Small nucleolar RNA SNORD63: a 69-nucleotide sequence from Propithecus coquereli.
Rfam 15.1 lists 795 matches to the family in 549 species.
The family's RNA type in Rfam is C/D-box small nucleolar RNA.
For this family Rfam cites "Purified box C/D snoRNPs are able to reproduce site-specific 2'-O-methylation of target RNA in vitro" (Galardi et al., Mol Cell Biol, 2002).
RNA sequence: GUGCAGUGAUGUAUUUGUCAACACAUCAUUCUGAAAAACUGUGUGUGGUGACUUCCACGACUGAGCACA
Dot-bracket structure: ((((............................................................)))).